[Rfam]
RNA: Small nucleolar RNA R66
Organism: Genlisea aurea
RNA sequence: UCCGAUGAUGGCAUGAAAAAUCUUUGAGACCUGAUUGUCUAAAUCGUGACGACAGUUUACAAGCAAUUAUCUGCUGAGGAC
Numbered sequence: 001u002c003c004g005a006u007g008a009u010g011g012c013a014u015g016a017a018a019a020a021u022c023u024u025u026g027a028g029a030c031c032u033g034a035u036u037g038u039c040u041a042a043a044u045c046g047u048g049a050c051g052a053c054a055g056u057u058u059a060c061a062a063g064c065a066a067u068u069a070u071c072u073g074c075u076g077a078g079g080a081c
Base pairs, nucleotide, nucleotide: 001080002079003078034047035042036041